[Rfam]
RNA sequence: GCCGAGCUGGGUAACGCCAGCUUGUGACUCGAGUGAGGGCAACUAAGGUGUUGGAACAACGGUUCAGCACGCUCGGCGGGGUUUGUUGUGCAAACCACAGGCUCGCCCGCUCCAAGCUGGGAGUUGGGUUGUCUGAUUUGGGCGAAGGCUUGGGUCAGGUGGCUCCUAGAGCGGAGGGCAAAGCGUGAGGCUGGCUUCACAGUGCAGCGAUCACCUCCCGCUCUGAGCAGUGGAAGGAUAACGGGCCCGUGCGCAGCAUGCCCACAUUGCCGGGUGAGUCGAAUCCGAUUGAACCAACAUUUUU
Number, nucleotide and partner (000 for none) at each position: 001g040002c039003c038004g023005a022006g021007c020008u019009g018010g017011g000012u000013a000014a000015c000016g000017c010018c009019a008020g007021c006022u005023u004024g000025u000026g000027a000028c037029u036030c035031g000032a000033g000034u000035g030036a029037g028038g003039g002040c001041a000042a000043c000044u000045a303046a302047g301048g300049u299050g298051u297052u296053g295054g294055a000056a000057c291058a290059a000060c287061g286062g284063u283064u282065c281066a000067g279068c000069a000070c276071g275072c274073u273074c272075g271076g270077c269078g268079g263080g262081g261082u260083u000084u258085g257086u256087u000088g254089u253090g252091c000092a000093a250094a000095c000096c000097a000098c249099a000100g247101g246102c245103u244104c243105g242106c000107c237108c236109g000110c000111u234112c233113c232114a231115a000116g228117c227118u226119g000120g224121g223122a222123g221124u220125u000126g165127g164128g163129u162130u161131g160132u159133c158134u157135g156136a155137u154138u153139u152140g151141g150142g149143c148144g000145a000146a000147g000148g143149c142150u141151u140152g139153g138154g137155u136156c135157a134158g133159g132160u131161g130162g129163c128164u127165c126166c171167u000168a000169g000170a000171g166172c000173g218174g217175a216176g215177g214178g000179c000180a000181a000182a211183g000184c209185g208186u207187g000188a000189g000190g000191c202192u201193g200194g000195c000196u000197u000198c000199a000200c193201a192202g191203u000204g000205c000206a000207g186208c185209g184210a000211u182212c000213a000214c177215c176216u175217c174218c173219c000220g124221c123222u122223c121224u120225g000226a118227g117228c116229a000230g000231u114232g113233g112234a111235a000236g108237g107238a000239u000240a000241a000242c105243g104244g103245g102246c101247c100248c000249g098250u093251g000252c090253g089254c088255a000256g086257c085258a084259u000260g082261c081262c080263c079264a000265c000266a000267u000268u078269g077270c076271c075272g074273g073274g072275u071276g070277a000278g000279u067280c000281g065282a064283a063284u062285c000286c061287g060288a000289u000290u058291g057292a000293a000294c054295c053296a052297a051298c050299a049300u048301u047302u046303u045304u000
The family of this 304-nucleotide RNA from Morella rubra is "Plant signal recognition particle RNA". Lineage of the source: Eukaryota > Viridiplantae > Streptophytina > Magnoliopsida > Morella. The family's RNA type in Rfam is non-coding RNA gene. The family has 63 seed sequences and 4,988 matches in Rfam 15.1. A search with the family's covariance model found it, with a score of 238 bits.